[Rfam]
Nucleotides: 073
Base pairs, nucleotide, nucleotide: 001072002071003070004069005068006067007066010026011025012024013023028044029043030042031041032040049065050064051063052062053061
Number, partner (000 for none) and nucleotide at each position: 001072g002071g003070c004069c005068c006067c007066a008000u009000c010026g011025u012024c013023u014000a015000g016000c017000g018000g019000u020000u021000c022000a023013g024012g025011a026010c027000g028044c029043c030042g031041g032040c033000c034000u035000c036000u037000c038000a039000c040032g041031c042030c043029g044028g045000a046000a047000g048000c049065a050064g051063g052062g053061g054000u055000u056000c057000g058000a059000u060000u061053c062052c063051c064050c065049u066007u067006g068005g069004g070003g071002u072001c073000a